[Rfam]
RNA sequence: UUCAUUUUUGAAUUAAUACUCACGUCUAUCGUCACGUUUGGUAGGGUGCCGGCGCCGCCUGAUUCUCAUAGAAUCGUUGUAAACCGGUUACCAGACGGGAUGGGCGGAGGCGCAAC
Numbered sequence: 001u002u003c004a005u006u007u008u009u010g011a012a013u014u015a016a017u018a019c020u021c022a023c024g025u026c027u028a029u030c031g032u033c034a035c036g037u038u039u040g041g042u043a044g045g046g047u048g049c050c051g052g053c054g055c056c057g058c059c060u061g062a063u064u065c066u067c068a069u070a071g072a073a074u075c076g077u078u079g080u081a082a083a084c085c086g087g088u089u090a091c092c093a094g095a096c097g098g099g100a101u102g103g104g105c106g107g108a109g110g111c112g113c114a115a116c
Stems, first nucleotide, its partner, number of pairs: 023106008035097009048088005
t44 RNA: a 116-nucleotide sequence from Candidatus Methylobacter favarea. About the family: This family consists of a number of bacterial RNA genes of between 135 and 170 bases in length. The t44 gene has been identified in several species of enteric bacteria but homologs have also been identified in Pseudomonas and Coxiella species. The t44 gene is found between the map and rpsB genes in all species in the full alignment apart from Shigella flexneri. The function of this RNA is unknown. Pairs were carried over by alignment from the consensus structure, which was predicted with LocARNA. The organism belongs to Methylobacter, within Bacteria. The family's RNA type in Rfam is small RNA. On this family, see Tjaden et al., Nucleic Acids Res 2002: "Transcriptome analysis of Escherichia coli using high-density oligonucleotide probe arrays".